[Rfam]
RNA sequence: UUGCACGGCGAGUUUUGCAGGUUUGCAUCCAGCUUGAAAACAACACGCUGUGCAAAUCCAUGCAAAACUGGCGGUCACA
Numbered sequence: 001u002u003g004c005a006c007g008g009c010g011a012g013u014u015u016u017g018c019a020g021g022u023u024u025g026c027a028u029c030c031a032g033c034u035u036g037a038a039a040a041c042a043a044c045a046c047g048c049u050g051u052g053c054a055a056a057u058c059c060a061u062g063c064a065a066a067a068c069u070g071g072c073g074g075u076c077a078c079a
Stems, first nucleotide, its partner, number of pairs: 005075002008072002011069009020059002022056007031049003
RNA: mir-19 microRNA precursor family